[Rfam]
RNA sequence: AAUAGUAGCAUGAUAAAUCAAAUUUUUUCUCCUUAUUUUCAGCUUUUUCUUUCUAAAAAAAAAUUCAAAUCCAACUAAAAAUGCUAAAAAUCAAGAGGAAAAAUCUGAUUUGUCAUGCUCCUAUU
Numbered sequence: 001a002a003u004a005g006u007a008g009c010a011u012g013a014u015a016a017a018u019c020a021a022a023u024u025u026u027u028u029c030u031c032c033u034u035a036u037u038u039u040c041a042g043c044u045u046u047u048u049c050u051u052u053c054u055a056a057a058a059a060a061a062a063a064u065u066c067a068a069a070u071c072c073a074a075c076u077a078a079a080a081a082u083g084c085u086a087a088a089a090a091u092c093a094a095g096a097g098g099a100a101a102a103a104u105c106u107g108a109u110u111u112g113u114c115a116u117g118c119u120c121c122u123a124u125u
Stems, first nucleotide, its partner, number of pairs: 001125005007119014022104006029097003033093001035091005041085002045081004
Dot-bracket structure: (((((.((((((((((((((.((((((.(((.(.(((((.((..((((.............................))))..)).))))).).))).)))))).)))))))))))))).)))))
RNA: MIR7504 microRNA precursor family
Organism: Gossypium mustelinum